[Rfam]
RNA sequence: GGCCCAACACAACGGCUUCCUGACGUGAUGGGCGACAUAAAACUGGAGCA
Numbered sequence: 001g002g003c004c005c006a007a008c009a010c011a012a013c014g015g016c017u018u019c020c021u022g023a024c025g026u027g028a029u030g031g032g033c034g035a036c037a038u039a040a041a042a043c044u045g046g047a048g049c050a
Stems, first nucleotide, its partner, number of pairs: 004031003008027003013022002015049003019046002
The record is a 50-nucleotide RNA from Pacificibacter marinus, which matches "SAM/SAH riboswitch aptamer" in Rfam.
A reference for the family is Weickhmann et al. (2019), "The structure of the SAM/SAH-binding riboswitch", Nucleic Acids Res.
Pairs were carried over by alignment from the consensus structure, which is taken from published work.
Its family is annotated with regulation of gene expression and S-adenosylmethionine metabolic process in the Gene Ontology.